[Rfam]
RNA: Small nucleolar RNA SNORA15
Organism: Alligator sinensis
RNA sequence: GCAUGGAAGAAUUCUGCGUUGGCUUUUUCAGUAGCUAAUGCAGUCAGACGCUAUGCUAGAGUAUAUUUCCUUAUUACAGUCCUAACAGCCUGCUUUACACAGAGUAGGCAUGUCCAUGGAAGUGGGAUACAU
Numbered sequence: 001g002c003a004u005g006g007a008a009g010a011a012u013u014c015u016g017c018g019u020u021g022g023c024u025u026u027u028u029c030a031g032u033a034g035c036u037a038a039u040g041c042a043g044u045c046a047g048a049c050g051c052u053a054u055g056c057u058a059g060a061g062u063a064u065a066u067u068u069c070c071u072u073a074u075u076a077c078a079g080u081c082c083u084a085a086c087a088g089c090c091u092g093c094u095u096u097a098c099a100c101a102g103a104g105u106a107g108g109c110a111u112g113u114c115c116a117u118g119g120a121a122g123u124g125g126g127a128u129a130c131a132u
Base pairs, nucleotide, nucleotide: 001056002055003054004053005052006051014043015042016041017040018039019038068127069126070125072124073123074122075121077119083118084117088113089112091110092109093108094107095106